[Rfam]
RNA sequence: CGCAGAAGCAAUGGAAGGCUUAUAUGGGCGGUCGGCUAAUCUCCCGGAAGGGGGGUGACGCCAAUGGAGGUUUAUCAAGCAUUGUCCCUGAUGUUCAUGUUCGGCAUGUUCAUUAUCGCGCUGCUAAAUUACCUCAAAAAGAAAUAGACCGCCCUUCUCAAGGGAAGCGGUCUAUUCUUUGACUGGUCUACCUUUAAAAGCCUCCGCCCUUAAAAGCGGCUAUUGCGCAGAGAGUCGUGUUACCAGCACGGCUC
Numbered sequence: 001c002g003c004a005g006a007a008g009c010a011a012u013g014g015a016a017g018g019c020u021u022a023u024a025u026g027g028g029c030g031g032u033c034g035g036c037u038a039a040u041c042u043c044c045c046g047g048a049a050g051g052g053g054g055g056u057g058a059c060g061c062c063a064a065u066g067g068a069g070g071u072u073u074a075u076c077a078a079g080c081a082u083u084g085u086c087c088c089u090g091a092u093g094u095u096c097a098u099g100u101u102c103g104g105c106a107u108g109u110u111c112a113u114u115a116u117c118g119c120g121c122u123g124c125u126a127a128a129u130u131a132c133c134u135c136a137a138a139a140a141g142a143a144a145u146a147g148a149c150c151g152c153c154c155u156u157c158u159c160a161a162g163g164g165a166a167g168c169g170g171u172c173u174a175u176u177c178u179u180u181g182a183c184u185g186g187u188c189u190a191c192c193u194u195u196a197a198a199a200g201c202c203u204c205c206g207c208c209c210u211u212a213a214a215a216g217c218g219g220c221u222a223u224u225g226c227g228c229a230g231a232g233a234g235u236c237g238u239g240u241u242a243c244c245a246g247c248a249c250g251g252c253u254c
Stems, first nucleotide, its partner, number of pairs: 001227005007221002016203006024156001026154003030149001032147001037058001039056001041054005066133002069130004079094003103125004160179003204219004232254010
RNA: BsrG
Organism: Paenibacillus sp. FSL R5-0912